[Rfam]
RNA sequence: GCUGUCUUGUCGGGGUUCCUGCUUAUUAAAAAGUGGGAUGAGAGGUGGAAGCACCAACCCGCGAACCUGAUCCGGUUAAUACCGGCGUAGGAAACAAGAUUUCAGGCUGC
Numbered sequence: 001g002c003u004g005u006c007u008u009g010u011c012g013g014g015g016u017u018c019c020u021g022c023u024u025a026u027u028a029a030a031a032a033g034u035g036g037g038a039u040g041a042g043a044g045g046u047g048g049a050a051g052c053a054c055c056a057a058c059c060c061g062c063g064a065a066c067c068u069g070a071u072c073c074g075g076u077u078a079a080u081a082c083c084g085g086c087g088u089a090g091g092a093a094a095c096a097a098g099a100u101u102u103c104a105g106g107c108u109g110c
Stems, first nucleotide, its partner, number of pairs: 006098005011061004017038008045054003066091004072085004

This 110-nucleotide sequence from Motiliproteus sp. MSK22-1 belongs to the Rfam family "TPP riboswitch aptamer (THI element)".
About the family: Vitamin B(1) in its active form thiamin pyrophosphate (TPP) is an essential coenzyme that is synthesised by coupling of pyrimidine and thiazole moieties in bacteria.
The organism belongs to Motiliproteus, within Bacteria.
A search with the family's covariance model found it, with a score of 64 bits.